Background
The record is a 75-nucleotide RNA sequence from Buceros rhinoceros, which matches "mir-460 microRNA precursor family" in Rfam.
[Rfam]
RNA sequence: CUCUCUGGCGUCCUCAUUGUACAUGCUGUGUGUAUCCGUCACGUACACAGCGCAUGCAAUGUGGACACGAUGGAG
Numbered sequence: 001c002u003c004u005c006u007g008g009c010g011u012c013c014u015c016a017u018u019g020u021a022c023a024u025g026c027u028g029u030g031u032g033u034a035u036c037c038g039u040c041a042c043g044u045a046c047a048c049a050g051c052g053c054a055u056g057c058a059a060u061g062u063g064g065a066c067a068c069g070a071u072g073g074a075g
Base pairs, nucleotide, nucleotide: 012064013063015061016060017059018058019057020056021055024052026050027049028048029047030046031045